[Rfam]
RNA sequence: CUGAAGUGAUGAACUUGUUUAUCCAUUCGCUGAGUGCUGCUGGGCCCUGGCCUUGCAGCCUCCUGUGUCUGUUCUUGACUCAGGGGGUUCAGCGGCCUGACUCUGUGCUUUUGCCCCCAGUGUUCUACUGGGGUAACUGCAUGGGGUCAGGUGUGCUGGUGCAUGGGUCAAGGGCCCGGCCACAACUAAGACGAGCGUAAACUCCUGAUCAC
Numbered sequence: 001c002u003g004a005a006g007u008g009a010u011g012a013a014c015u016u017g018u019u020u021a022u023c024c025a026u027u028c029g030c031u032g033a034g035u036g037c038u039g040c041u042g043g044g045c046c047c048u049g050g051c052c053u054u055g056c057a058g059c060c061u062c063c064u065g066u067g068u069c070u071g072u073u074c075u076u077g078a079c080u081c082a083g084g085g086g087g088u089u090c091a092g093c094g095g096c097c098u099g100a101c102u103c104u105g106u107g108c109u110u111u112u113g114c115c116c117c118c119a120g121u122g123u124u125c126u127a128c129u130g131g132g133g134u135a136a137c138u139g140c141a142u143g144g145g146g147u148c149a150g151g152u153g154u155g156c157u158g159g160u161g162c163a164u165g166g167g168u169c170a171a172g173g174g175c176c177c178g179g180c181c182a183c184a185a186c187u188a189a190g191a192c193g194a195g196c197g198u199a200a201a202c203u204c205c206u207g208a209u210c211a212c
Base pairs, nucleotide, nucleotide: 010211011210012209014207017204020201024197026195027194028193029192030190031189034186035185039180040179041178042177043176044175045174046173047172048170052167053166054165055162056161058088059087060086061085062084063083064082065081067079068078069077089159090158091157092156093155094154102146103145104143107140108139111136112135113134114133116132117131118130119129120128121127122126